Sense overlapping transcript RNA 0042 (sot): a 186-nucleotide RNA from Natronolimnobius baerhuensis. For this family Rfam cites "Sense overlapping transcripts in IS1341-type transposase genes are functional non-coding RNAs in archaea" (Gomes-Filho et al., RNA Biol, 2015). Rfam's curators write: It is associated with IS1341-type transposase (tnpB) genes, at the 3'-end in H. salinarum NRC-1. The tetraloop structural motif may be functional. NCBI's taxonomy places the organism under Archaea, Methanobacteriati, Methanobacteriota, Halobacteria, Natronolimnobius. The family's RNA type in Rfam is small RNA. The family has 2 seed sequences and 196 matches in Rfam 15.1.

RNA sequence: AAGUAUCUCCGAGUCUUGCCUGCGAUGGGGGAGAUAGGAGUAACGGCUGGUUGGCACAGCCAUCGACGUACCUGUUUGACAAGGAAACUGGCGCAUUCGAGCCUCAAGAACAAGUCACGUCGUAAACCACAAUAUCCCAACCCAGCGGCGCGGUGCCGUGGGAAUCCUCGCGCUUCAGCGCGGGGA
Numbered sequence: 001a002a003g004u005a006u007c008u009c010c011g012a013g014u015c016u017u018g019c020c021u022g023c024g025a026u027g028g029g030g031g032a033g034a035u036a037g038g039a040g041u042a043a044c045g046g047c048u049g050g051u052u053g054g055c056a057c058a059g060c061c062a063u064c065g066a067c068g069u070a071c072c073u074g075u076u077u078g079a080c081a082a083g084g085a086a087a088c089u090g091g092c093g094c095a096u097u098c099g100a101g102c103c104u105c106a107a108g109a110a111c112a113a114g115u116c117a118c119g120u121c122g123u124a125a126a127c128c129a130c131a132a133u134a135u136c137c138c139a140a141c142c143c144a145g146c147g148g149c150g151c152g153g154u155g156c157c158g159u160g161g162g163a164a165u166c167c168u169c170g171c172g173c174u175u176c177a178g179c180g181c182g183g184g185g186a
Stems, first nucleotide, its partner, number of pairs: 003044002007040004013035003016031002019028002045061005064122006071114001073112005090103003094099001135163004165186009